Shown here is an 88-nucleotide RNA sequence from Daucus carota, a member of the family "Small nucleolar RNA R11/Z151". Rfam links the family to the GO terms RNA processing and nucleolus. Pairs were carried over by alignment from the consensus structure, which was predicted with PFOLD. The family has 5 seed sequences and 802 matches in Rfam 15.1.

[Rfam]
RNA sequence: UGGCUUAUGAUGAUAAAUUAUAAAUAUCUUAGCGGAUUUCAGUGAGAUUAUUACAUCUAUGAUCUGAUUGUUACACACACUGAAGCCC
Number, nucleotide and partner (000 for none) at each position: 001u000002g087003g086004c085005u084006u000007a000008u000009g000010a000011u000012g000013a000014u000015a000016a000017a000018u000019u000020a000021u000022a000023a000024a000025u000026a000027u000028c000029u000030u000031a000032g000033c000034g000035g000036a000037u000038u000039u000040c000041a000042g000043u000044g000045a000046g000047a000048u000049u000050a000051u000052u000053a000054c000055a000056u000057c000058u000059a000060u000061g000062a000063u000064c000065u000066g000067a000068u000069u000070g000071u000072u000073a000074c000075a000076c000077a000078c000079a000080c000081u000082g000083a000084a005085g004086c003087c002088c000